The record is a 197-nucleotide RNA from Bacillus mycoides, which matches "Group II catalytic intron D1-D4-5" in Rfam. The base pairs follow the family's consensus structure. Lineage of the source: Bacteria > Bacillati > Bacilli > Caryophanales > Bacillus mycoides.
[Rfam]
RNA sequence: CGGAAGGAUUAUAUCGAAGAGUCGAAUGAUAGGGUAACGCCUUGAAAGGCUCUCUCUGCGUCGAAUAGCACGACAUUGAGUAAGAAGUUUCGUGUUAUAAGCUCGGCAAAUAGGCGUGAGAAUUUACCGUAACAGUAUCGGCUGACGAAAACCUUACCCGAGGGGGCGGUGUAAAUUAUGAUGCUUGAGUUGAACAA
Numbered sequence: 001c002g003g004a005a006g007g008a009u010u011a012u013a014u015c016g017a018a019g020a021g022u023c024g025a026a027u028g029a030u031a032g033g034g035u036a037a038c039g040c041c042u043u044g045a046a047a048g049g050c051u052c053u054c055u056c057u058g059c060g061u062c063g064a065a066u067a068g069c070a071c072g073a074c075a076u077u078g079a080g081u082a083a084g085a086a087g088u089u090u091c092g093u094g095u096u097a098u099a100a101g102c103u104c105g106g107c108a109a110a111u112a113g114g115c116g117u118g119a120g121a122a123u124u125u126a127c128c129g130u131a132a133c134a135g136u137a138u139c140g141g142c143u144g145a146c147g148a149a150a151a152c153c154u155u156a157c158c159c160g161a162g163g164g165g166g167c168g169g170u171g172u173a174a175a176u177u178a179u180g181a182u183g184c185u186u187g188a189g190u191u192g193a194a195c196a197a
Base pairs, nucleotide, nucleotide: 018053019052020051021050022049023048031043032042033041034040054189055188056187059106062105063104064103065098066097067096068095069094070093071092072091073090075088076087113185114184115183116182117181122176123175124174125173126172127171128147129146130145134143135142151170153169154168157166158165159164
Rfam describes the family as follows. Group II introns are found in rRNA, tRNA and mRNA of organelles in fungi, plants and protists, and also in mRNA in bacteria.